Flavo-1 RNA: an 80-nucleotide RNA from Flavobacterium psychrophilum. Rfam classes the family as a small RNA. Rfam's curators put it in the seed alignment.

RNA sequence: UUUUAGCCCCGAUUGUAGUGAAAAUCCUUUUCUUUUUUUCUUUAAAAAAGAAAAGAUUGAAGCGUAAAGCGGGCGAAUGA
Dot-bracket structure: ........(((.((...((...((((..((((((((((.....)))))))))).))))...))...)).)))........